Shown here is a 91-nucleotide sequence from Olsenella profusa, a member of the family "Selenocysteine transfer RNA". The base pairs follow the family's consensus structure, which is taken from published work. Lineage of the source: Bacteria > Actinomycetota > Coriobacteriia > Olsenella > Olsenella profusa. Clan: tRNA clan. For this family Rfam cites "Eukaryotic selenocysteine tRNA has the 9/4 secondary structure" (Mizutani and Goto, FEBS Lett, 2000).
[Rfam]
RNA sequence: GGGAGUAGAUGGGUGACUGGUGUGCCCUCUGGUCUUCAAAACCAGUAUGGGCAGGAAACUGCUCGGGUGGGUUCGAUUCCCACAUGCUCCC
Numbered sequence: 001g002g003g004a005g006u007a008g009a010u011g012g013g014u015g016a017c018u019g020g021u022g023u024g025c026c027c028u029c030u031g032g033u034c035u036u037c038a039a040a041a042c043c044a045g046u047a048u049g050g051g052c053a054g055g056a057a058a059c060u061g062c063u064c065g066g067g068u069g070g071g072u073u074c075g076a077u078u079c080c081c082a083c084a085u086g087c088u089c090c091c
Stems, first nucleotide, its partner, number of pairs: 001091007008083001011027005017022001029045005048065005068082004
Dot-bracket structure: ((((((((..(((((.(....)))))).(((((.......)))))..(((((........)))))..((((.......))))).)))))))